[Rfam]
Shown here is a 113-nucleotide RNA from Rhodovulum sp. PH10, a member of the family "EcpR1". About the family: Perviously named SmelC291, SmrC10, or Sra33. According to its overproduction phenotype it was renamed Elongated Cell Phenotype RNA1. Induced by stress,EcpR1 negatively regulates cell cycle master regulatory genes dnaA and gcrA at post-transcriptional level by base pairing between its strongly conserved GC-rich loop and the target mRNAs. It's regulation is hfq-independent but requires RNase E to regulate dnaA. The match comes from Rfam's covariance-model search (79 bits). Rfam links the family to the GO terms regulation of translation in response to stress, negative regulation of cell cycle and mRNA binding.
RNA sequence: UUGCCCUACGGAGUGCUCAGGUCCGCCGCAUCUCCUGUAGCGCCGUGGGGUUCGGCCGGCCGGUGAGCGGUGAGAGUGGCCUCCUCAAGACACCGCUCCCGGCCGGCCAUUUC
Numbered sequence: 001u002u003g004c005c006c007u008a009c010g011g012a013g014u015g016c017u018c019a020g021g022u023c024c025g026c027c028g029c030a031u032c033u034c035c036u037g038u039a040g041c042g043c044c045g046u047g048g049g050g051u052u053c054g055g056c057c058g059g060c061c062g063g064u065g066a067g068c069g070g071u072g073a074g075a076g077u078g079g080c081c082u083c084c085u086c087a088a089g090a091c092a093c094c095g096c097u098c099c100c101g102g103c104c105g106g107c108c109a110u111u112u113c
Stems, first nucleotide, its partner, number of pairs: 003051008016040002018037004054108010